[Rfam]
RNA sequence: UGACGGGGGCCCGCACAAGCGGUGGAGCAUGUGGUUCAAUUCGACGCAACGCGAAGAACCUUACCCAGGCUUGAACAGCGAGUGACCAUUCCCGAAAGGGAACUUCCGCAAGGACACUCGUAGAGGUGCUGCAUGGCUGUCGUCAGCUCGUGUCGUGAGAUGUUGGGUUAAGUCCCGCAACGAGCGCAACCCUUGUCUGCUGUUGCCAUCAGGUAAUGCUGGGCACUCUGCAGAGACUGCCGGUGAUAAACCGGAGGAAGGUGGGGAUGACGUCAAGUCAGCAUGGCCUUUAUGUCUGGGGCUACACACGUGCUACAAUGGCCGGUACAAACCGUCGCAAAACCGUAAGGUCGAGCUAAUCGGAGAAAGCCGGUCUCAGUUCGGAUAGCAGGCUGCAACUCGCCUGCUUGAAGUUGGAAUCGCUAGUAAUCGCGGAUCAGCACGCCGCGGUGAAUACGUUCCCGGGCCUUGUACACACCGCCCGUCACAUCACGAAAGCCGGUUGUACUAGAAGUCGCUACAUCAACCCGCAAGGGAGAGAGGCGCCUAAGGUAUGGUCGGUGAUUGGGGUGAAGUCGUAACAAGG
Numbered sequence: 001u002g003a004c005g006g007g008g009g010c011c012c013g014c015a016c017a018a019g020c021g022g023u024g025g026a027g028c029a030u031g032u033g034g035u036u037c038a039a040u041u042c043g044a045c046g047c048a049a050c051g052c053g054a055a056g057a058a059c060c061u062u063a064c065c066c067a068g069g070c071u072u073g074a075a076c077a078g079c080g081a082g083u084g085a086c087c088a089u090u091c092c093c094g095a096a097a098g099g100g101a102a103c104u105u106c107c108g109c110a111a112g113g114a115c116a117c118u119c120g121u122a123g124a125g126g127u128g129c130u131g132c133a134u135g136g137c138u139g140u141c142g143u144c145a146g147c148u149c150g151u152g153u154c155g156u157g158a159g160a161u162g163u164u165g166g167g168u169u170a171a172g173u174c175c176c177g178c179a180a181c182g183a184g185c186g187c188a189a190c191c192c193u194u195g196u197c198u199g200c201u202g203u204u205g206c207c208a209u210c211a212g213g214u215a216a217u218g219c220u221g222g223g224c225a226c227u228c229u230g231c232a233g234a235g236a237c238u239g240c241c242g243g244u245g246a247u248a249a250a251c252c253g254g255a256g257g258a259a260g261g262u263g264g265g266g267a268u269g270a271c272g273u274c275a276a277g278u279c280a281g282c283a284u285g286g287c288c289u290u291u292a293u294g295u296c297u298g299g300g301g302c303u304a305c306a307c308a309c310g311u312g313c314u315a316c317a318a319u320g321g322c323c324g325g326u327a328c329a330a331a332c333c334g335u336c337g338c339a340a341a342a343c344c345g346u347a348a349g350g351u352c353g354a355g356c357u358a359a360u361c362g363g364a365g366a367a368a369g370c371c372g373g374u375c376u377c378a379g380u381u382c383g384g385a386u387a388g389c390a391g392g393c394u395g396c397a398a399c400u401c402g403c404c405u406g407c408u409u410g411a412a413g414u415u416g417g418a419a420u421c422g423c424u425a426g427u428a429a430u431c432g433c434g435g436a437u438c439a440g441c442a443c444g445c446c447g448c449g450g451u452g453a454a455u456a457c458g459u460u461c462c463c464g465g466g467c468c469u470u471g472u473a474c475a476c477a478c479c480g481c482c483c484g485u486c487a488c489a490u491c492a493c494g495a496a497a498g499c500c501g502g503u504u505g506u507a508c509u510a511g512a513a514g515u516c517g518c519u520a521c522a523u524c525a526a527c528c529c530g531c532a533a534g535g536g537a538g539a540g541a542g543g544c545g546c547c548u549a550a551g552g553u554a555u556g557g558u559c560g561g562u563g564a565u566u567g568g569g570g571u572g573a574a575g576u577c578g579u580a581a582c583a584a585g586g
Stems, first nucleotide, its partner, number of pairs: 001475002003472003007469007015459002019423005024316001026314008034305002040055004064300007076123001078121001080119005089102005105114003125289002128287004134283002136278003139274001141272002146185006152161003164177004191266004196234005202228001206223002210221003237257002240254005320375007332363003337356002342351003382413001387408007429451007478585001480582001483578002488572004493567003498562012514547001516545004523539002527536002
This 586-nucleotide part of an RNA from uncultured bacterium 70 belongs to the Rfam family "Bacterial small subunit ribosomal RNA". Rfam links the family to the GO terms structural constituent of ribosome and ribosome. For this family Rfam cites "The comparative RNA web (CRW) site: an online database of comparative sequence and structure information for ribosomal, intron, and other RNAs" (Cannone et al., BMC Bioinformatics, 2002). The family's consensus secondary structure is taken from published work.